[Rfam]
RNA sequence: AGGACGCGGCCGCCGAAUCCGCUUCGAUGCGGAACCGGGGACCCAAUCUCGUUGGGGUGAAUCGGUGCGUGCCUCACGAUGGCCGCCCCGUAGGGCACUUCCAGGCCCGAAUCCGUCAGCUAACCCGGUAGGCGGCAUGGAAGCAAGGA
Numbered sequence: 001a002g003g004a005c006g007c008g009g010c011c012g013c014c015g016a017a018u019c020c021g022c023u024u025c026g027a028u029g030c031g032g033a034a035c036c037g038g039g040g041a042c043c044c045a046a047u048c049u050c051g052u053u054g055g056g057g058u059g060a061a062u063c064g065g066u067g068c069g070u071g072c073c074u075c076a077c078g079a080u081g082g083c084c085g086c087c088c089c090g091u092a093g094g095g096c097a098c099u100u101c102c103a104g105g106c107c108c109g110a111a112u113c114c115g116u117c118a119g120c121u122a123a124c125c126c127g128g129u130a131g132g133c134g135g136c137a138u139g140g141a142a143g144c145a146a147g148g149a
Base pairs, nucleotide, nucleotide: 011134012133013132014131018033019032020031021030022029034129035128036127037126038125039124044054045053055114056113057112063090064089065088093108094107095106096105
The record is a 149-nucleotide RNA from Nonomuraea polychroma, which matches "c-di-AMP riboswitch aptamer (ydaO/yuaA leader)" in Rfam.